The record is a 123-nucleotide RNA from Citrobacter freundii, which matches "Histidine operon leader" in Rfam. Its family is annotated with histidine biosynthetic process in the Gene Ontology. Rfam describes the family as follows. At least 6 amino acid operons are known to be regulated by attenuation. In each a leader sequence of 150-200 bp is found upstream of the first gene in the operon. This leader sequence can assume two different secondary structures known as the terminator and the anti-terminator structure. In each case the leader also codes for very short peptide sequence that is rich in the end product amino acid of the operon. The terminator structure is recognised as a termination signal for RNA polymerase and the operon is not transcribed. This structure forms when the cell has an excess of the regulatory amino acid and ribosome movement over the leader transcript is not impeded. When there is a deficiency of the charged tRNA of the regulatory amino acid the ribosome translating the leader peptide stalls and the antiterminator structure can form. This allows RNA polymerase to transcribe the operon. In the Rfam alignment the consensus structure is of the terminator structure. Taxonomically the source falls in Citrobacter freundii complex (Bacteria, Pseudomonadota, Gammaproteobacteria, Enterobacterales).
RNA sequence: CCAUCAUCACCAUCAUCCUGACUAGUCUUUCAGGCGAUGUGUGCUGGGAGACAUUUAACUCUUCCAGUGGUGCAUGAGCGCAUGAGAAAGCCCCCGGAAGAAUUCUUCCGGGGGCUUUUUUUU
Numbered sequence: 001c002c003a004u005c006a007u008c009a010c011c012a013u014c015a016u017c018c019u020g021a022c023u024a025g026u027c028u029u030u031c032a033g034g035c036g037a038u039g040u041g042u043g044c045u046g047g048g049a050g051a052c053a054u055u056u057a058a059c060u061c062u063u064c065c066a067g068u069g070g071u072g073c074a075u076g077a078g079c080g081c082a083u084g085a086g087a088a089a090g091c092c093c094c095c096g097g098a099a100g101a102a103u104u105c106u107u108c109c110g111g112g113g114g115c116u117u118u119u120u121u122u123u
Stems, first nucleotide, its partner, number of pairs: 008043003011039004017034005044067008085120016